[Rfam]
RNA sequence: GCUGCCCGGACGCCGGAUGACAAGACCGCACGGCAGGAGCGGGGGACCCAGGUAGUUUGCCGUUCCCGUUGGUCUCGGGACGGCUAGGGGUGAAGUCGCAGCGACAUGCCUUGAUUUGGCGUGCCCCAUUGCGGCCGGGCAUCUCCAGCCCGAACCCGACAGCUUACCUCGCAGGCGUCGGAGAGGAAUUCG
Numbered sequence: 001g002c003u004g005c006c007c008g009g010a011c012g013c014c015g016g017a018u019g020a021c022a023a024g025a026c027c028g029c030a031c032g033g034c035a036g037g038a039g040c041g042g043g044g045g046a047c048c049c050a051g052g053u054a055g056u057u058u059g060c061c062g063u064u065c066c067c068g069u070u071g072g073u074c075u076c077g078g079g080a081c082g083g084c085u086a087g088g089g090g091u092g093a094a095g096u097c098g099c100a101g102c103g104a105c106a107u108g109c110c111u112u113g114a115u116u117u118g119g120c121g122u123g124c125c126c127c128a129u130u131g132c133g134g135c136c137g138g139g140c141a142u143c144u145c146c147a148g149c150c151c152g153a154a155c156c157c158g159a160c161a162g163c164u165u166a167c168c169u170c171g172c173a174g175g176c177g178u179c180g181g182a183g184a185g186g187a188a189u190u191c192g
Stems, first nucleotide, its partner, number of pairs: 011177004018038001039172006049087001088157003096134006137151004
The record is a 192-nucleotide RNA sequence from Actinacidiphila glaucinigra, which matches "c-di-AMP riboswitch aptamer (ydaO/yuaA leader)" in Rfam. The match comes from Rfam's covariance-model search (62 bits). The source organism's lineage runs through Bacteria, Bacillati, Actinomycetes, Streptomycetaceae and Actinacidiphila.